[Rfam]
RNA: Trypanosomatid snoRNA TB9Cs4H2
RNA sequence: AGGCCCUCCAGCUACCCCACGGAGUUUUGCACAUACGUGUUCCAUCUUCGUGAGGGUCGUUUUCAGGGCCAAGAUUU
Numbered sequence: 001a002g003g004c005c006c007u008c009c010a011g012c013u014a015c016c017c018c019a020c021g022g023a024g025u026u027u028u029g030c031a032c033a034u035a036c037g038u039g040u041u042c043c044a045u046c047u048u049c050g051u052g053a054g055g056g057u058c059g060u061u062u063u064c065a066g067g068g069c070c071a072a073g074a075u076u077u
Base pairs, nucleotide, nucleotide: 002070003069004068005067006066007065014057015056016055018052019051020050021049022048023047024046